[Rfam]
RNA sequence: CACCAGGUUGAUUCUGCCUGACGUAGAUGCUAGUCUCUAAGAUUAAGCCAUGCAUGUUUCCGCAAUCAGGGACGAAUAGCUCAGUAAAACUGCGAUGAUUUAGUCUGGCUGUGUAGAUAACUACGUGAAAAUGUAGCUAAGGGAAGGCAGAAUAAGACGCAGGACUAUCAGUUAGUUGGUAGUGUAAUGGACUACCAAGACAGUGACGGUUGACGGGAAAUUAGGGUUUUGUACCGGAGAGGGAGCCUGAGAGAUUGCUCCCACGUCCAAGGACGGCAGCAGGCGCGAAAAUUGCCCACUCUUUGCAGGAGGCAGUUAUGAGACGUGAAGAUGAGUAUCUUGUAAAGAGGGAUAGGAGAAUUGGAGGGCAAGUUUGGUGCCAGCAGCCGCGGUAAUACCGACUCCAAGAGUGUGUAUGAGAGAUGCUG
Number, nucleotide and partner (000 for none) at each position: 001c000002a000003c000004c020005a019006g018007g017008u016009u000010g000011a000012u000013u000014c000015u000016g008017c007018c006019u005020g004021a000022c418023g417024u416025a415026g000027a413028u412029g411030c410031u409032a000033g324034u323035c322036u321037c320038u000039a317040a316041g286042a000043u000044u000045a000046a000047g284048c283049c282050a000051u281052g280053c279054a000055u000056g073057u072058u000059u071060c070061c069062g000063c000064a000065a000066u000067c000068a000069g061070g060071g059072a057073c056074g000075a000076a000077u000078a000079g000080c239081u238082c237083a000084g000085u000086a000087a000088a000089a000090c162091u161092g160093c159094g158095a000096u156097g000098a000099u155100u154101u000102a000103g000104u151105c150106u149107g148108g000109c146110u145111g000112u000113g000114u144115a000116g000117a000118u000119a000120a000121c136122u135123a134124c133125g132126u131127g000128a000129a000130a000131a126132u125133g124134u123135a122136g121137c000138u000139a000140a000141g000142g000143g000144a114145a110146g109147g000148c107149a106150g105151a104152a000153u000154a100155a099156g096157a000158c094159g093160c092161a091162g090163g000164a210165c209166u208167a000168u000169c000170a000171g201172u200173u199174a000175g000176u198177u197178g196179g195180u194181a193182g192183u191184g000185u000186a000187a000188u000189g000190g000191a183192c182193u181194a180195c179196c178197a177198a176199g173200a172201c171202a000203g000204u000205g000206a000207c000208g166209g165210u164211u000212g000213a000214c236215g235216g234217g000218a229219a228220a227221u226222u000223a000224g000225g000226g221227u220228u219229u218230u000231g000232u000233a000234c216235c215236g214237g082238a081239g080240a000241g262242g261243g260244a259245g258246c257247c000248u000249g000250a000251g000252a000253g000254a000255u000256u000257g246258c245259u244260c243261c242262c241263a000264c275265g274266u273267c272268c000269a000270a000271g000272g267273a266274c265275g264276g000277c000278a000279g053280c052281a051282g049283g048284c047285g000286c041287g000288a000289a000290a000291a000292u314293u000294g313295c312296c311297c000298a000299c000300u309301c308302u307303u000304u000305g000306c000307a302308g301309g300310a000311g296312g295313c294314a292315g000316u040317u039318a000319u000320g037321a036322g035323a034324c033325g000326u000327g000328a000329a000330g000331a000332u000333g000334a000335g000336u354337a353338u352339c351340u350341u000342g000343u000344a000345a000346a000347g000348a000349g000350g340351g339352a338353u337354a336355g000356g000357a000358g000359a000360a000361u407362u406363g405364g404365a403366g402367g000368g000369c000370a000371a000372g000373u000374u401375u400376g399377g398378u000379g000380c000381c000382a000383g390384c389385a000386g000387c000388c000389g384390c383391g000392g000393u000394a000395a000396u000397a000398c377399c376400g375401a374402c366403u365404c364405c363406a362407a361408g000409a031410g030411u029412g028413u027414g000415u025416a024417u023418g022419a000420g000421a000422g000423a000424u000425g000426c000427u000428g000
A member of the RNA family "Microsporidia small subunit ribosomal RNA" from Vittaforma corneae, 428 nucleotides of a longer RNA. Clan: SSU clan. Rfam's curators put it in the seed alignment. Taxonomically the source falls in Vittaforma corneae (Eukaryota, Opisthokonta, Fungi, Vittaforma).